[Rfam]
RNA: Small nucleolar RNA SNORD79
RNA sequence: UACUGUUUGUGAUGAGUUCUAAGCAAUGGGAAUCUCUCUGAAAGAUGUCUCUGAGGAAAAUCCUGUGCUGAAACAGUA
Numbered sequence: 001u002a003c004u005g006u007u008u009g010u011g012a013u014g015a016g017u018u019c020u021a022a023g024c025a026a027u028g029g030g031a032a033u034c035u036c037u038c039u040g041a042a043a044g045a046u047g048u049c050u051c052u053g054a055g056g057a058a059a060a061u062c063c064u065g066u067g068c069u070g071a072a073a074c075a076g077u078a
Base pairs, nucleotide, nucleotide: 001078002077003076004075005074006073007072